[Rfam]
RNA sequence: UCCGAGCGUCAAGAGGGGCAGCCGUUCGGUUGCCCGGCAACCUGGUUUCGCCUCCAAGGUGCCAAGAUGACGCGGCCUGGCCCGUGAGCCAGGCAACAAAAGGCGGACUC
Numbered sequence: 001u002c003c004g005a006g007c008g009u010c011a012a013g014a015g016g017g018g019c020a021g022c023c024g025u026u027c028g029g030u031u032g033c034c035c036g037g038c039a040a041c042c043u044g045g046u047u048u049c050g051c052c053u054c055c056a057a058g059g060u061g062c063c064a065a066g067a068u069g070a071c072g073c074g075g076c077c078u079g080g081c082c083c084g085u086g087a088g089c090c091a092g093g094c095a096a097c098a099a100a101a102g103g104c105g106g107a108c109u110c
Stems, first nucleotide, its partner, number of pairs: 006073005015035001017034007036063003041059003044055002048106005075094007